[Rfam]
RNA sequence: UGGCCAUAGAAUAACUUAUUCUGUGGCCACUUUGAGUUACGAUAAUUAUCAUGCCAAUUUACCAGACUACAAUAACUCCUUACUAAGUGAUUUAUUAUAACAUUAUGGUAAAUAUCACCGUGUGUUAUAAUAACACGAGUAUCGUAAAUACAUAUUCAUGUUAUCGUAAAUUAGUACAAACACUAUUAUAAAUCAAUAUGACUAUAGAAUAAGUUAUUCUAUGAUCA
Numbered sequence: 001u002g003g004c005c006a007u008a009g010a011a012u013a014a015c016u017u018a019u020u021c022u023g024u025g026g027c028c029a030c031u032u033u034g035a036g037u038u039a040c041g042a043u044a045a046u047u048a049u050c051a052u053g054c055c056a057a058u059u060u061a062c063c064a065g066a067c068u069a070c071a072a073u074a075a076c077u078c079c080u081u082a083c084u085a086a087g088u089g090a091u092u093u094a095u096u097a098u099a100a101c102a103u104u105a106u107g108g109u110a111a112a113u114a115u116c117a118c119c120g121u122g123u124g125u126u127a128u129a130a131u132a133a134c135a136c137g138a139g140u141a142u143c144g145u146a147a148a149u150a151c152a153u154a155u156u157c158a159u160g161u162u163a164u165c166g167u168a169a170a171u172u173a174g175u176a177c178a179a180a181c182a183c184u185a186u187u188a189u190a191a192a193u194c195a196a197u198a199u200g201a202c203u204a205u206a207g208a209a210u211a212a213g214u215u216a217u218u219c220u221a222u223g224a225u226c227a
Base pairs, nucleotide, nucleotide: 001227002226003225005223006222007221008220009219010218011217012216013215014214015213016212017211018210019209020208021207022206023205024204025203026202028200029199032196033195037191038190039189041187042186043185044184046182052176053175054174056172057171058170059169060168061167062166065165066164069161070160071159074155080147081146082145083144087142088141089140091138092137093132094131095130096129097128098127099126100125101124102123103122108116
RNA: MIR6217 microRNA precursor family
Organism: Miscanthus lutarioriparius